RNA sequence: CUGCAUACCAGUAGACCUUAUCUGGUUCUUCUCGUAGCCAGACGAGGGGGACGGUGCAUGCAACAAAAACCUGGGGCUGCUGUAGGCUGUGAUCAGCCCCGCUGUGGCUGAUCGAACUGCAAUGCUCCAACAUAU
Numbered sequence: 001c002u003g004c005a006u007a008c009c010a011g012u013a014g015a016c017c018u019u020a021u022c023u024g025g026u027u028c029u030u031c032u033c034g035u036a037g038c039c040a041g042a043c044g045a046g047g048g049g050g051a052c053g054g055u056g057c058a059u060g061c062a063a064c065a066a067a068a069a070c071c072u073g074g075g076g077c078u079g080c081u082g083u084a085g086g087c088u089g090u091g092a093u094c095a096g097c098c099c100c101g102c103u104g105u106g107g108c109u110g111a112u113c114g115a116a117c118u119g120c121a122a123u124g125c126u127c128c129a130a131c132a133u134a135u
Stems, first nucleotide, its partner, number of pairs: 003061004008056001016047004021042004073128004078124001081121003093111005

Small nucleolar RNA SNORA58: a 135-nucleotide RNA sequence from Alca torda. A search with the family's covariance model found it, with a score of 86 bits. A reference for the family is Huttenhofer et al. (2001), "RNomics: an experimental approach that identifies 201 candidates for novel, small, non-messenger RNAs in mouse", EMBO J. Gene Ontology terms of the family: RNA processing and nucleolus. The base pairs follow the family's consensus structure, which was predicted with PFOLD. About the family: ACA52 is a member of the H/ACA class of snoRNA that guide the sites of modification of uridines to pseudouridines.